The family of this 85-nucleotide RNA sequence from Bacillus sp. V5-8f is "c-di-GMP-I riboswitch aptamer".
RNA sequence: UUCCGAUAACAGCAAACCUAUUGAAAAAUAGGGACGCAAAGCCUAGGGUCUAAAGCAGGGAUGCCAUGAUUGCCUGGUUGCCGAA
Numbered sequence: 001u002u003c004c005g006a007u008a009a010c011a012g013c014a015a016a017c018c019u020a021u022u023g024a025a026a027a028a029u030a031g032g033g034a035c036g037c038a039a040a041g042c043c044u045a046g047g048g049u050c051u052a053a054a055g056c057a058g059g060g061a062u063g064c065c066a067u068g069a070u071u072g073c074c075u076g077g078u079u080g081c082c083g084a085a
Stems, first nucleotide, its partner, number of pairs: 012037002017032006040079004045075003048070003055064003
The organism belongs to Bacillus, within Bacteria. A search with the family's covariance model found it, with a score of 82 bits.